RNA sequence: CCCUGCCCCUUCACUUUGCCAGUUGGACUUGUGUCCUGAUUGGUCAUUCAAGUGGGGCAAAGGAAUCUCCUUUUCAAACUCAAGCAGACUGGGUGUUUGCCUUGUAUCCUGUCAGAGGAAACAGAU
Number, nucleotide and partner (000 for none) at each position: 001c000002c000003c000004u000005g000006c000007c000008c000009c000010u000011u000012c000013a000014c000015u000016u000017u000018g000019c000020c000021a000022g000023u000024u000025g000026g000027a000028c000029u000030u000031g000032u059033g058034u057035c056036c055037u000038g000039a000040u051041u050042g049043g048044u000045c000046a000047u000048u043049c042050a041051a040052g000053u000054g000055g036056g035057g034058c033059a032060a000061a000062g000063g000064a000065a000066u000067c000068u119069c118070c117071u116072u115073u114074u000075c000076a000077a000078a000079c000080u000081c104082a102083a000084g100085c099086a098087g097088a096089c095090u000091g000092g000093g000094u000095g089096u088097u087098u086099g085100c084101c000102u082103u000104g081105u000106a000107u000108c000109c000110u000111g000112u000113c000114a073115g072116a071117g070118g069119a068120a000121a000122c000123a000124g000125a000126u000
Source information:
Rfam assigns this 126-nucleotide RNA sequence from Suricata suricatta to the family "Small nucleolar RNA SNORA27". Rfam links the family to the GO terms RNA processing and nucleolus. By type it is an H/ACA-box small nucleolar RNA. The base pairs follow the family's consensus structure. Its Rfam clan is "SNORA27 clan". ACA27 is a member of the H/ACA class of snoRNA that guide the sites of modification of uridines to pseudouridines.